Record summary
Shown here is an 86-nucleotide RNA sequence from Rattus norvegicus, a member of the family "mir-7 microRNA precursor family". On this family, see Ambros, Cell 2001: "microRNAs: tiny regulators with great potential". Lineage of the source: Eukaryota > Amniota > Eutheria > Myomorpha > Rattus.
[Rfam]
RNA sequence: AGACCAGCCCUGUCUGGAAGACUAGUGAUUUUGUUGUUGUGUCUGUGUCCAACAACAAGUCCCAGUCUGCCACAUGGUGUUGGUCA
Numbered sequence: 001a002g003a004c005c006a007g008c009c010c011u012g013u014c015u016g017g018a019a020g021a022c023u024a025g026u027g028a029u030u031u032u033g034u035u036g037u038u039g040u041g042u043c044u045g046u047g048u049c050c051a052a053c054a055a056c057a058a059g060u061c062c063c064a065g066u067c068u069g070c071c072a073c074a075u076g077g078u079g080u081u082g083g084u085c086a
Base pairs, nucleotide, nucleotide: 002085003084004083005082006081007080008079010077011076012075013074015072016071017070019068020067021066022065023064025063027061028060029059030058031057033056034055035054036053037052038051

Annotation
Gene Ontology terms of the family: miRNA-mediated post-transcriptional gene silencing and RISC complex. From the family's description: This family represents the microRNA (miRNA) precursor mir-7.